[Rfam]
RNA sequence: GCCAAGCGCCCUUUGCUCGGAUCGUCCGGCACGUUCCUGCCGGUGGAGGGAUGGAGAG
Numbered sequence: 001g002c003c004a005a006g007c008g009c010c011c012u013u014u015g016c017u018c019g020g021a022u023c024g025u026c027c028g029g030c031a032c033g034u035u036c037c038u039g040c041c042g043g044u045g046g047a048g049g050g051a052u053g054g055a056g057a058g
Stems, first nucleotide, its partner, number of pairs: 009050007026043006